Mammalian CPEB3 ribozyme: a 78-nucleotide RNA from Crocodylus porosus. It scores 38 bits against the family's covariance model.
RNA sequence: AGAUCACAAGUUUGAGGCCAUAGCAGAAGCACUUACAAUGCAGCCUGUCAAAUCCCAAUGAAAUCUGUGAAUUCUGCU
Numbered sequence: 001a002g003a004u005c006a007c008a009a010g011u012u013u014g015a016g017g018c019c020a021u022a023g024c025a026g027a028a029g030c031a032c033u034u035a036c037a038a039u040g041c042a043g044c045c046u047g048u049c050a051a052a053u054c055c056c057a058a059u060g061a062a063a064u065c066u067g068u069g070a071a072u073u074c075u076g077c078u
Stems, first nucleotide, its partner, number of pairs: 016045003022078007029041003049067002052064002
Rfam describes the family as follows. The mammalian CPEB3 ribozyme is a self cleaving RNA located in the second intron of the CPEB3 gene which belongs to a family of genes regulating messenger RNA polyadenylation. The source organism's lineage runs through Eukaryota, Opisthokonta, Eumetazoa, Bilateria and Crocodylus.